[Rfam]
RNA sequence: AUAUGCCUGGCUCCCUGUAUGCCACCCGCAUAGCUGCCAACUCAGUCGAGCGCGCUUCCCCCAGCUGUGGGCGUGUACGAUUGCUGGCUCUACUGCGGAUGGCGUGCGAGGAGCCAAGCAUGA
Numbered sequence: 001a002u003a004u005g006c007c008u009g010g011c012u013c014c015c016u017g018u019a020u021g022c023c024a025c026c027c028g029c030a031u032a033g034c035u036g037c038c039a040a041c042u043c044a045g046u047c048g049a050g051c052g053c054g055c056u057u058c059c060c061c062c063a064g065c066u067g068u069g070g071g072c073g074u075g076u077a078c079g080a081u082u083g084c085u086g087g088c089u090c091u092a093c094u095g096c097g098g099a100u101g102g103c104g105u106g107c108g109a110g111g112a113g114c115c116a117a118g119c120a121u122g123a
Stems, first nucleotide, its partner, number of pairs: 002122005008116007016108009027097003